[Rfam]
RNA sequence: CUUGUAUUUCAACCUAAGAAUUGCUGUUUCUUGUAGCAGCGGUUUAAACAGAGCUGCAUACAGCAAGUGGAUCUUGUCACUUUUGGGAGGCUAUAGUUUUGCCCCUCAAAGUGAAUUUGUGAAAAACAAAAACA
Numbered sequence: 001c002u003u004g005u006a007u008u009u010c011a012a013c014c015u016a017a018g019a020a021u022u023g024c025u026g027u028u029u030c031u032u033g034u035a036g037c038a039g040c041g042g043u044u045u046a047a048a049c050a051g052a053g054c055u056g057c058a059u060a061c062a063g064c065a066a067g068u069g070g071a072u073c074u075u076g077u078c079a080c081u082u083u084u085g086g087g088a089g090g091c092u093a094u095a096g097u098u099u100u101g102c103c104c105c106u107c108a109a110a111g112u113g114a115a116u117u118u119g120u121g122a123a124a125a126a127c128a129a130a131a132a133c134a
Base pairs, nucleotide, nucleotide: 003058004057005056006055008053009052019044020043021042022041023040024039025038026037027036028035069127072124074122075121081111082110083109084108085107086106087105089103090102091101